The family of this 227-nucleotide RNA from Tolypothrix bouteillei is "c-di-AMP riboswitch aptamer (ydaO/yuaA leader)". Lineage of the source: Bacteria > Cyanobacteriota > Cyanophyceae > Tolypothrichaceae > Tolypothrix bouteillei. A search with the family's covariance model found it, with a score of 63 bits.
[Rfam]
RNA sequence: AGAGUAAGUCAGCCUAAUCUGGCUAAUGGCAAGUUUGCAUUAGUUAGAGCGGAGGAACCAUUCAAAGGGGCGUAUCCUGAGAAAGGGUCAAAUAUAAAGGGUAUGGGGAUAAAAAGAGGGGGCAGUAGUAACUUCAUCCUUUACACUUUAUACUUAAUCCUUCUCAGGGAGAGUAUCUCUCAACUCUAGCCCGUCAGCUAACUUCGUAGGCACUGAGAGGAGACUGA
Dot-bracket structure: ...........(((...(((((((((((.........)))))))))))((((((....(.......)(((.....((((((((.............................................................................))))))))..((((........))))...))).........)))))).)))................
Numbered sequence: 001a002g003a004g005u006a007a008g009u010c011a012g013c014c015u016a017a018u019c020u021g022g023c024u025a026a027u028g029g030c031a032a033g034u035u036u037g038c039a040u041u042a043g044u045u046a047g048a049g050c051g052g053a054g055g056a057a058c059c060a061u062u063c064a065a066a067g068g069g070g071c072g073u074a075u076c077c078u079g080a081g082a083a084a085g086g087g088u089c090a091a092a093u094a095u096a097a098a099g100g101g102u103a104u105g106g107g108g109a110u111a112a113a114a115a116g117a118g119g120g121g122g123c124a125g126u127a128g129u130a131a132c133u134u135c136a137u138c139c140u141u142u143a144c145a146c147u148u149u150a151u152a153c154u155u156a157a158u159c160c161u162u163c164u165c166a167g168g169g170a171g172a173g174u175a176u177c178u179c180u181c182a183a184c185u186c187u188a189g190c191c192c193g194u195c196a197g198c199u200a201a202c203u204u205c206g207u208a209g210g211c212a213c214u215g216a217g218a219g220g221a222g223a224c225u226g227a
Stems, first nucleotide, its partner, number of pairs: 012211003018048011049207006059067001068192003076168008171186004